[Rfam]
RNA sequence: GAUGCAAUAAUGAGGCAAAGCACCCAACGGUGUGGUAGGGUAGUGGGCGAAGCUUUUAAAGCUCCACCGUGAACCUUCAUUUUUAACGACUGAGCAUC
Numbered sequence: 001g002a003u004g005c006a007a008u009a010a011u012g013a014g015g016c017a018a019a020g021c022a023c024c025c026a027a028c029g030g031u032g033u034g035g036u037a038g039g040g041u042a043g044u045g046g047g048c049g050a051a052g053c054u055u056u057u058a059a060a061g062c063u064c065c066a067c068c069g070u071g072a073a074c075c076u077u078c079a080u081u082u083u084u085a086a087c088g089a090c091u092g093a094g095c096a097u098c
Stems, first nucleotide, its partner, number of pairs: 001098005
RNA: Small nucleolar RNA Z152/R70/R12/
Organism: Acer yangbiense